[Rfam]
The record is a 73-nucleotide RNA from Stegodyphus mimosarum, which matches "mir-137 microRNA precursor family" in Rfam. The family is grouped with related families in Rfam's "mir-137 clan". Rfam links the family to the GO terms RISC complex and miRNA-mediated post-transcriptional gene silencing. On this family, see Ruby et al., Genome Res 2007: "Evolution, biogenesis, expression, and target predictions of a substantially expanded set of Drosophila microRNAs".

RNA sequence: GUUGGUCAUGUGUAUUCUUGAGUGAAUAACACUUUAUGUUCGUUGUUAUUGCUUGAGAAUACACGUAGUUAAC
Dot-bracket structure: (((((..(((.((((((((((((.((((((((.........).))))))))))))))))))).)))..)))))
Numbered sequence: 001g002u003u004g005g006u007c008a009u010g011u012g013u014a015u016u017c018u019u020g021a022g023u024g025a026a027u028a029a030c031a032c033u034u035u036a037u038g039u040u041c042g043u044u045g046u047u048a049u050u051g052c053u054u055g056a057g058a059a060u061a062c063a064c065g066u067a068g069u070u071a072a073c
Stems, first nucleotide, its partner, number of pairs: 001073005008066003012062012025050007032042001